[Rfam]
RNA: Vault RNA
Organism: Darwinula stevensoni
RNA sequence: GGAUCGGCCUAGCCGACUGGGUACUUCGUCUAUUCGUGUUCUAUAGCUUGACGCUGUGGUGAGCGACACUCUUGUCCCACCGGCGCAGUUCGGUCCUUUU
Numbered sequence: 001g002g003a004u005c006g007g008c009c010u011a012g013c014c015g016a017c018u019g020g021g022u023a024c025u026u027c028g029u030c031u032a033u034u035c036g037u038g039u040u041c042u043a044u045a046g047c048u049u050g051a052c053g054c055u056g057u058g059g060u061g062a063g064c065g066a067c068a069c070u071c072u073u074g075u076c077c078c079a080c081c082g083g084c085g086c087a088g089u090u091c092g093g094u095c096c097u098u099u100u
Stems, first nucleotide, its partner, number of pairs: 002095006012084004018079003026066004